[Rfam]
Shown here is an 82-nucleotide RNA from Camellia sinensis, a member of the family "Small nucleolar RNA R38". A search with the family's covariance model found it, with a score of 63 bits.

RNA sequence: GCUUGUGGAUGAUGAUAAAAAAAACAUCACAGUUAUCCCUGUCUGAUAUAUUUGUGCUGACCUUUUGUGAUCUGACACAAAC
Number, nucleotide and partner (000 for none) at each position: 001g082002c000003u080004u079005g078006u077007g076008g000009a000010u000011g000012a000013u000014g000015a000016u000017a000018a000019a000020a000021a000022a000023a000024a000025c000026a000027u000028c000029a000030c000031a000032g000033u000034u000035a000036u000037c000038c000039c000040u000041g000042u000043c000044u000045g000046a000047u000048a000049u000050a000051u000052u000053u000054g000055u000056g000057c000058u000059g000060a000061c000062c000063u000064u000065u000066u000067g000068u000069g000070a000071u000072c000073u000074g000075a000076c007077a006078c005079a004080a003081a000082c001
NCBI's taxonomy places the organism under Eukaryota, Viridiplantae, Magnoliopsida, Pentapetalae, Camellia. Gene Ontology terms of the family: RNA processing and nucleolus. The base pairs follow the family's consensus structure, which was predicted with PFOLD. By type it is a C/D-box small nucleolar RNA. snoR38 is a C/D box small nucleolar RNA conserved across yeast, human, Arabidopsis and rice. It is encoded in the intron of elongation factor-1 gamma in both pombe and cerevisiae. snoR38 guides the methylation of 2'-O-ribose sites in 28S rRNA. For this family Rfam cites "Antisense snoRNAs: a family of nucleolar RNAs with long complementarities to rRNA" (Bachellerie et al., Trends Biochem Sci, 1995).